About this RNA:
Rfam assigns this 87-nucleotide RNA from Danio rerio to the family "mir-726 microRNA precursor family". Rfam links the family to the GO terms RISC complex and miRNA-mediated post-transcriptional gene silencing. The base pairs follow the family's consensus structure, which was predicted with RNAalifold. The source organism's lineage runs through Eukaryota, Metazoa, Actinopteri, Danioninae and Danio.
RNA sequence: UCAGUCGUAUGCCUGGAAUUCCGCUAGUUCUGAACUAUUCGUGAUUGGCAAAAGUUCACUACUAGCAGAACUCGGAUAUACAACUGA
Dot-bracket structure: ..(((.(((((.((((..(((.((((((..((((((.((...........))))))))..)))))).))).)))).))))).)))..